RNA: mir-8/mir-141/mir-200 microRNA precursor family
Organism: Bagarius yarrelli
RNA sequence: UUUGCCAUCUUACGAGGCAGCAUUGGAUAUCGUCACUCUCUCUAAUACUGCCUGGUAAUGAUGAUGAA
Numbered sequence: 001u002u003u004g005c006c007a008u009c010u011u012a013c014g015a016g017g018c019a020g021c022a023u024u025g026g027a028u029a030u031c032g033u034c035a036c037u038c039u040c041u042c043u044a045a046u047a048c049u050g051c052c053u054g055g056u057a058a059u060g061a062u063g064a065u066g067a068a
Stems, first nucleotide, its partner, number of pairs: 002067003006063004010058004015053006022046006